[Rfam]
RNA sequence: CCGUCCGCCCUUCGGAAUGCCUUCGAGCCGUGGCGUCCCGGCCCGCUAGGCUGGCCGGGUGCGCGUCCCGCGGCCGACUCGUCGGCGCGGCGGGGACACGCAUAGCCGACAGCCGUCGCAUCCCAGGGAGCACGUUCCAUG
Numbered sequence: 001c002c003g004u005c006c007g008c009c010c011u012u013c014g015g016a017a018u019g020c021c022u023u024c025g026a027g028c029c030g031u032g033g034c035g036u037c038c039c040g041g042c043c044c045g046c047u048a049g050g051c052u053g054g055c056c057g058g059g060u061g062c063g064c065g066u067c068c069c070g071c072g073g074c075c076g077a078c079u080c081g082u083c084g085g086c087g088c089g090g091c092g093g094g095g096a097c098a099c100g101c102a103u104a105g106c107c108g109a110c111a112g113c114c115g116u117c118g119c120a121u122c123c124c125a126g127g128g129a130g131c132a133c134g135u136u137c138c139a140u141g
Stems, first nucleotide, its partner, number of pairs: 060102004065097004105119002108117003
Background: The record is a 141-nucleotide RNA from Actinacidiphila alni, which matches "Streptomyces-metH RNA" in Rfam. The family's consensus secondary structure is taken from published work.